[Rfam]
RNA sequence: UAAUAAUUCCAUCAAUAGAUAUAGUGCGUGGCUGCUUGCAGACAAAGCACUAUAUCUAUUGGAUGGAUAAACAGGCAUGAGCAAGUAAUGGUUCUGCGAAGCUGAACCUAUGAAUUGCGAAUGACUGUUGUGAUUUCGACAGUUCGCAGAACGGAGAAAUCACUAUUAUUA
Numbered sequence: 001u002a003a004u005a006a007u008u009c010c011a012u013c014a015a016u017a018g019a020u021a022u023a024g025u026g027c028g029u030g031g032c033u034g035c036u037u038g039c040a041g042a043c044a045a046a047g048c049a050c051u052a053u054a055u056c057u058a059u060u061g062g063a064u065g066g067a068u069a070a071a072c073a074g075g076c077a078u079g080a081g082c083a084a085g086u087a088a089u090g091g092u093u094c095u096g097c098g099a100a101g102c103u104g105a106a107c108c109u110a111u112g113a114a115u116u117g118c119g120a121a122u123g124a125c126u127g128u129u130g131u132g133a134u135u136u137c138g139a140c141a142g143u144u145c146g147c148a149g150a151a152c153g154g155a156g157a158a159a160u161c162a163c164u165a166u167u168a169u170u171a
Stems, first nucleotide, its partner, number of pairs: 001171007008067004014060014029045001030043001032041003071128004076123003081118004088111002090108005131162007142152004

A member of the RNA family "Clostridiales-1 RNA" from Firmicutes bacterium CAG:882, 171 nucleotides long. The family has 194 seed sequences and 1,172 matches in Rfam 15.1. Rfam classes the family as a small RNA. The match comes from Rfam's covariance-model search (110 bits). The base pairs follow the family's consensus structure, which is taken from published work. NCBI's taxonomy places the organism under Bacteria, Bacillati, Bacillota.